[Rfam]
RNA sequence: AAAAGGAGCAAUACCGUCUCUUGAUAGAACAAGAAAGAGGUUAUUGCUCCUUUUUUAA
Numbered sequence: 001a002a003a004a005g006g007a008g009c010a011a012u013a014c015c016g017u018c019u020c021u022u023g024a025u026a027g028a029a030c031a032a033g034a035a036a037g038a039g040g041u042u043a044u045u046g047c048u049c050c051u052u053u054u055u056u057a058a
Stems, first nucleotide, its partner, number of pairs: 002053012015040001019034005